RNA sequence: GGGCGCAUAGCUCAGUUGGUAGAGCACGGCCCUUACAAGGCUGGGGUCGGCAGUUCGAGCCUGUCUGCGCCCA
Numbered sequence: 001g002g003g004c005g006c007a008u009a010g011c012u013c014a015g016u017u018g019g020u021a022g023a024g025c026a027c028g029g030c031c032c033u034u035a036c037a038a039g040g041c042u043g044g045g046g047u048c049g050g051c052a053g054u055u056c057g058a059g060c061c062u063g064u065c066u067g068c069g070c071c072c073a
Stems, first nucleotide, its partner, number of pairs: 001072007010025004027043005049065005
A member of the RNA family "tRNA" from Sorangiineae bacterium NIC37A_2, 73 nucleotides long. Pairs were carried over by alignment from the consensus structure, which is taken from published work.